[Rfam]
This 146-nucleotide RNA from Penicillium digitatum belongs to the Rfam family "A. fumigatus sRNA Afu_254". Lineage of the source: Eukaryota > Fungi > Dikarya > Ascomycota > Penicillium digitatum. A search with the family's covariance model found it, with a score of 83 bits.
RNA sequence: CUACCAUCCAAACACUACUCUCAGGCUUUUUCCAAGGUUCCUCGUCUGCCAAAUCUAUUCAUCAUGUCUCCCUGCAACUGCAACUGCUGCUCCGGCGACUGCAAGUCCUGCUCUUGCUCCACCUGCGCUGUAUGUCAUUGCUUGAU
Numbered sequence: 001c002u003a004c005c006a007u008c009c010a011a012a013c014a015c016u017a018c019u020c021u022c023a024g025g026c027u028u029u030u031u032c033c034a035a036g037g038u039u040c041c042u043c044g045u046c047u048g049c050c051a052a053a054u055c056u057a058u059u060c061a062u063c064a065u066g067u068c069u070c071c072c073u074g075c076a077a078c079u080g081c082a083a084c085u086g087c088u089g090c091u092c093c094g095g096c097g098a099c100u101g102c103a104a105g106u107c108c109u110g111c112u113c114u115u116g117c118u119c120c121a122c123c124u125g126c127g128c129u130g131u132a133u134g135u136c137a138u139u140g141c142u143u144g145a146u
Base pairs, nucleotide, nucleotide: 073097074096075095080090081089082088101126102125103124110117111116